This 343-nucleotide sequence from Aurantiacibacter luteus belongs to the Rfam family "Alphaproteobacteria transfer-messenger RNA". The base pairs follow the family's consensus structure, which is taken from published work. For this family Rfam cites "Phylogenetic analysis of tmRNA secondary structure" (Williams and Bartel, RNA, 1996). The match comes from Rfam's covariance-model search (235 bits). The organism belongs to Aurantiacibacter, within Bacteria.
RNA sequence: CCACUUCACAUUCAUCCGCGGCGCGCUAUAUCGGUCCUGCCGGUUUCGGCCGGCUAUGGCGAUAAAGUGCGCCGUGAAAUAGGUACAAUGGACCCGGGGGCAGUACCCGGCGGCUCCACCAAAACCGCAGUGACCUGCGCGUUCUGACGGGGCCGAACCAGGAUCGACAUGUGCUGAAAGACGGUGUUUUUGCUCGGGCUGAGUACCCCGUAAAACUGUUCAAAACACACAAGUGCCAACGAUAACGAAGCACUCGCUCUUGCUGCGUAAUCUGACGUCCUAACGGACUGAUCUUACAAGGCUUAAGCGCGGUUGGACCGACCGGGCAACAGAACGGAUUCCG
Numbered sequence: 001c002c003a004c005u006u007c008a009c010a011u012u013c014a015u016c017c018g019c020g021g022c023g024c025g026c027u028a029u030a031u032c033g034g035u036c037c038u039g040c041c042g043g044u045u046u047c048g049g050c051c052g053g054c055u056a057u058g059g060c061g062a063u064a065a066a067g068u069g070c071g072c073c074g075u076g077a078a079a080u081a082g083g084u085a086c087a088a089u090g091g092a093c094c095c096g097g098g099g100g101c102a103g104u105a106c107c108c109g110g111c112g113g114c115u116c117c118a119c120c121a122a123a124a125c126c127g128c129a130g131u132g133a134c135c136u137g138c139g140c141g142u143u144c145u146g147a148c149g150g151g152g153c154c155g156a157a158c159c160a161g162g163a164u165c166g167a168c169a170u171g172u173g174c175u176g177a178a179a180g181a182c183g184g185u186g187u188u189u190u191u192g193c194u195c196g197g198g199c200u201g202a203g204u205a206c207c208c209c210g211u212a213a214a215a216c217u218g219u220u221c222a223a224a225a226c227a228c229a230c231a232a233g234u235g236c237c238a239a240c241g242a243u244a245a246c247g248a249a250g251c252a253c254u255c256g257c258u259c260u261u262g263c264u265g266c267g268u269a270a271u272c273u274g275a276c277g278u279c280c281u282a283a284c285g286g287a288c289u290g291a292u293c294u295u296a297c298a299a300g301g302c303u304u305a306a307g308c309g310c311g312g313u314u315g316g317a318c319c320g321a322c323c324g325g326g327c328a329a330c331a332g333a334a335c336g337g338a339u340u341c342c343g
Stems, first nucleotide, its partner, number of pairs: 039054005058194005069187007084173003088170003094110005111155007195210004200222003310324004315341003319337001